[Rfam]
RNA sequence: UCCGGGGCGACCCGGAAUCCGAAGGAAGCCGAAGGCAAAACCCCGGCCUGACGAACAGAAAUCGCAUAUGAGGCAGCCACAUCCGGGCGAGAAGGCAACUAUCUUCAAAGCCCUAUAACCAUCCAGGAGGGUGCGGCUGUAGAUGCGGCGGGUGUAUGGGGUGAAGGUCGCGCGC
Numbered sequence: 001u002c003c004g005g006g007g008c009g010a011c012c013c014g015g016a017a018u019c020c021g022a023a024g025g026a027a028g029c030c031g032a033a034g035g036c037a038a039a040a041c042c043c044c045g046g047c048c049u050g051a052c053g054a055a056c057a058g059a060a061a062u063c064g065c066a067u068a069u070g071a072g073g074c075a076g077c078c079a080c081a082u083c084c085g086g087g088c089g090a091g092a093a094g095g096c097a098a099c100u101a102u103c104u105u106c107a108a109a110g111c112c113c114u115a116u117a118a119c120c121a122u123c124c125a126g127g128a129g130g131g132u133g134c135g136g137c138u139g140u141a142g143a144u145g146c147g148g149c150g151g152g153u154g155u156a157u158g159g160g161g162u163g164a165a166g167g168u169c170g171c172g173c174g175c
Stems, first nucleotide, its partner, number of pairs: 001016006028175002035168002040162006046153005062148006073140003077136002080133004085113004091106004
A member of the RNA family "Group II catalytic intron D1-D4-3" from Geoanaerobacter pelophilus, 175 nucleotides long. The family has 406 seed sequences and 4,274 matches in Rfam 15.1. The source organism's lineage runs through Bacteria, Pseudomonadati, Thermodesulfobacteriota, Geobacterales and Geoanaerobacter. Rfam links the family to the GO term Group II intron splicing. It scores 141 bits against the family's covariance model.